Shown here is a 72-nucleotide sequence from Operophtera brumata, a member of the family "mir-932 microRNA precursor family". The base pairs follow the family's consensus structure, which was predicted with RNAalifold. It scores 74 bits against the family's covariance model.
[Rfam]
RNA sequence: CGAAGUCUCAAUUCCGUAGUGCAUUGCAGUGCAUCCUGCCCCCUGCAAGCAGUGCGGAAGUGAGGCAGCGGC
Numbered sequence: 001c002g003a004a005g006u007c008u009c010a011a012u013u014c015c016g017u018a019g020u021g022c023a024u025u026g027c028a029g030u031g032c033a034u035c036c037u038g039c040c041c042c043c044u045g046c047a048a049g050c051a052g053u054g055c056g057g058a059a060g061u062g063a064g065g066c067a068g069c070g071g072c
Stems, first nucleotide, its partner, number of pairs: 006065005013058005020051003024048005
Dot-bracket structure: .....(((((..(((((..(((.(((((...............))))))))..)))))..))))).......